Record summary:
The record is an 81-nucleotide RNA from Nothobranchius furzeri, which matches "mir-729 microRNA precursor family" in Rfam. A search with the family's covariance model found it, with a score of 76 bits. The family's consensus secondary structure was predicted with RNAalifold.
RNA sequence: GUCCUUCAGAGCAGAGGCUGUAUCGUAACCAGGCUGUGAGCAGGACAAGCAUGGGUAUGAUACGACCUCAGUUGGGAGGAC
Numbered sequence: 001g002u003c004c005u006u007c008a009g010a011g012c013a014g015a016g017g018c019u020g021u022a023u024c025g026u027a028a029c030c031a032g033g034c035u036g037u038g039a040g041c042a043g044g045a046c047a048a049g050c051a052u053g054g055g056u057a058u059g060a061u062a063c064g065a066c067c068u069c070a071g072u073u074g075g076g077a078g079g080a081c
Base pairs, nucleotide, nucleotide: 001081002080003079004078005077006076007075010073011072012071014069015068016067017066019064020063021062022061023060024059025058026057027056029054030053031052033050034049035047036046037045
Notes:
Lineage of the source: Eukaryota > Opisthokonta > Euteleosteomorpha > Atherinomorphae > Nothobranchius.